MIR5269 microRNA precursor family: an 80-nucleotide RNA from Medicago truncatula. Pairs were carried over by alignment from the consensus structure, which was predicted with RNAalifold.

[Rfam]
RNA sequence: UUGAGUGAAACUCACGUAGGUCUCGUGCUUUGGAAAUGGAUCCCACAUAAAGUUGCGAGACCUGCAUGAGUUUCACUCAA
Numbered sequence: 001u002u003g004a005g006u007g008a009a010a011c012u013c014a015c016g017u018a019g020g021u022c023u024c025g026u027g028c029u030u031u032g033g034a035a036a037u038g039g040a041u042c043c044c045a046c047a048u049a050a051a052g053u054u055g056c057g058a059g060a061c062c063u064g065c066a067u068g069a070g071u072u073u074c075a076c077u078c079a080a
Stems, first nucleotide, its partner, number of pairs: 001080014016065003023058003027053006